This 193-nucleotide sequence from Paenibacillus sp. TCA20 belongs to the Rfam family "glmS glucosamine-6-phosphate activated ribozyme aptamer".
Rfam classes the family as a riboswitch.
Rfam describes the family as follows. This entry contains a glucosamine-6-phosphate activated ribozyme that is found in the mRNA for GlmS. GlmS is an enzyme that uses fructose-6-phosphate and glutamine to generate glucosamine-6-phosphate.
The base pairs follow the family's consensus structure, which is taken from published work.
On this family, see Hampel and Tinsley, Biochemistry 2006: "Evidence for preorganization of the glmS ribozyme ligand binding pocket".

[Rfam]
RNA sequence: ACAGCAUUACAAGCGCCAGAACUUGUUCCAGUGUACGGAACCAUUGUUAUGUAAAACAAUGGACAAUGGUCAAGUUGACGAGGUGGGGGUGUUCGAAUUGUUCGGCGGGGACCUCCCGGUAAUCCACCAUACCGUAAAUCGAGAACGGAAAAGAAACAGGCGACUGUUUUUACAACGAAUCGAUAGGUGAAAC
Numbered sequence: 001a002c003a004g005c006a007u008u009a010c011a012a013g014c015g016c017c018a019g020a021a022c023u024u025g026u027u028c029c030a031g032u033g034u035a036c037g038g039a040a041c042c043a044u045u046g047u048u049a050u051g052u053a054a055a056a057c058a059a060u061g062g063a064c065a066a067u068g069g070u071c072a073a074g075u076u077g078a079c080g081a082g083g084u085g086g087g088g089g090u091g092u093u094c095g096a097a098u099u100g101u102u103c104g105g106c107g108g109g110g111a112c113c114u115c116c117c118g119g120u121a122a123u124c125c126a127c128c129a130u131a132c133c134g135u136a137a138a139u140c141g142a143g144a145a146c147g148g149a150a151a152a153g154a155a156a157c158a159g160g161c162g163a164c165u166g167u168u169u170u171u172a173c174a175a176c177g178a179a180u181c182g183a184u185a186g187g188u189g190a191a192a193c
Base pairs, nucleotide, nucleotide: 020076021075022074023073024072025071027069028068085116086115087114088113089112093105094104095103096102117134118133119132120131121130139183140182141181142180153170154169155168156167157166158165159164